RNA sequence: UAAUUAAUGCGAAUGCUAUUAUGUAUAUGCUGGAGAUUGGUCCAGUGUUUCUACCAACUACCGUAAAGAGUUGACUACAUAAUCCUAUGUGGUGACU
Numbered sequence: 001u002a003a004u005u006a007a008u009g010c011g012a013a014u015g016c017u018a019u020u021a022u023g024u025a026u027a028u029g030c031u032g033g034a035g036a037u038u039g040g041u042c043c044a045g046u047g048u049u050u051c052u053a054c055c056a057a058c059u060a061c062c063g064u065a066a067a068g069a070g071u072u073g074a075c076u077a078c079a080u081a082a083u084c085c086u087a088u089g090u091g092g093u094g095a096c097u
Base pairs, nucleotide, nucleotide: 018083019082020081021080022079023078024077025076029046030045031044032043033042034041055073056072057071058070059069
The record is a 97-nucleotide RNA from Mediterraneibacter sp. gm002, which matches "Purine riboswitch aptamer" in Rfam. A search with the family's covariance model found it, with a score of 59 bits. NCBI's taxonomy places the organism under Bacteria, Bacillota, Lachnospirales, Lachnospiraceae, Mediterraneibacter. Pairs were carried over by alignment from the consensus structure, which is taken from published work.